RNA sequence: GUAUUGUGGGGACCACCUCCCAGAGAGGUGUUGGGCAGUAGCCAGCCACGACGGCUUGCACGCGAGAUCUAGACCCCUUCGUGCAGACACCUUCAAGCAGCCGUCCAAAGCCAGCCAUGCCGUUUUUUUGU
Numbered sequence: 001g002u003a004u005u006g007u008g009g010g011g012a013c014c015a016c017c018u019c020c021c022a023g024a025g026a027g028g029u030g031u032u033g034g035g036c037a038g039u040a041g042c043c044a045g046c047c048a049c050g051a052c053g054g055c056u057u058g059c060a061c062g063c064g065a066g067a068u069c070u071a072g073a074c075c076c077c078u079u080c081g082u083g084c085a086g087a088c089a090c091c092u093u094c095a096a097g098c099a100g101c102c103g104u105c106c107a108a109a110g111c112c113a114g115c116c117a118u119g120c121c122g123u124u125u126u127u128u129u130g131u
Stems, first nucleotide, its partner, number of pairs: 006123004010116002014030006034043003045111002050106001051104006057085004063081004